[Rfam]
RNA: Small nucleolar RNA SNORD34
Organism: Ensete ventricosum
RNA sequence: ACAUGCCUUUGAUGAGUUGCAGAAUUGUUGCCUACAUUGUUUGAAUUUUUAAAUUAUGAUAAGAAUCUGCAAAACUCUGAGGCACUU
Numbered sequence: 001a002c003a004u005g006c007c008u009u010u011g012a013u014g015a016g017u018u019g020c021a022g023a024a025u026u027g028u029u030g031c032c033u034a035c036a037u038u039g040u041u042u043g044a045a046u047u048u049u050u051a052a053a054u055u056a057u058g059a060u061a062a063g064a065a066u067c068u069g070c071a072a073a074a075c076u077c078u079g080a081g082g083c084a085c086u087u
Stems, first nucleotide, its partner, number of pairs: 001087001004084006